[Rfam]
Nucleotides: 283
Stems, first nucleotide, its partner, number of pairs: 006030003011022002035049002038046001087137003092133002102128001104126001107123002111119001142162001144160001147158004167210003170206002217259008227245006268283001270281001272279002
Number, partner (000 for none) and nucleotide at each position: 001000u002000g003000a004000a005000g006030u007029c008028c009000u010000g011022u012021g013000g014000g015000u016000u017000g018000g019000g020000a021012c022011a023000a024000u025000a026000u027000g028008g029007g030006g031000g032000a033000a034000u035049u036048c037000g038046u039000g040000a041000g042000g043000g044000a045000a046038g047000a048036g049035g050000c051000g052000u053000c054000u055000a056000a057000g058000u059000g060000u061000u062000c063000g064000g065000c066000c067000a068000a069000a070000g071000g072000a073000a074000a075000a076000a077000a078000a079000a080000a081000g082000u083000g084000a085000a086000a087137g088136u089135c090000a091000g092133u093132u094000c095000g096000a097000c098000a099000a100000a101000g102128a103000u104126u105000g106000c107123c108122g109000c110000a111119g112000g113000a114000g115000c116000c117000u118000g119111c120000c121000a122108c123107g124000u125000c126104g127000u128102u129000c130000u131000u132093a133092a134000a135089g136088g137087u138000a139000c140000a141000g142162u143000a144160g145000c146000a147158c148157c149156u150155a151000a152000g153000u154000a155150u156149g157148g158147g159000a160144c161000a162142a163000g164000a165000a166000u167210u168209a169208a170206g171205u172000a173000a174000g175000c176000a177000u178000a179000a180000a181000g182000u183000u184000u185000u186000u187000g188000u189000u190000a191000a192000g193000c194000a195000a196000u197000u198000a199000a200000a201000a202000g203000a204000a205171g206170c207000u208169u209168u210167a211000a212000a213000g214000a215000c216000a217259c218258a219257g220256g221255g222254a223253g224252u225000a226000a227245a228244g229243g230242u231241u232240a233000a234000g235000a236000g237000u238000a239000a240232u241231g242230a243229u244228c245227u246000u247000u248000u249000u250000a251000a252224g253223u254222u255221u256220u257219u258218u259217g260000a261000c262000c263000u264000u265000a266000u267000u268283a269000a270281g271000a272279a273278u274000a275000c276000c277000u278273g279272u280000c281270c282000a283268u

Description
The record is a 283-nucleotide sequence from Sciurus vulgaris, which matches "Mason-Pfizer monkey virus packaging signal" in Rfam. Rfam links the family to the GO term viral genome packaging. About the family: This family represents a group of sequences that are related to the Mason-Pfizer monkey virus (MPMV) packaging signal. The packaging signal is located in the 5' UTR and is required for specific RNA encapsidation. The family's consensus secondary structure was predicted with PFOLD. A search with the family's covariance model found it, with a score of 144 bits. By type it is a cis-regulatory element.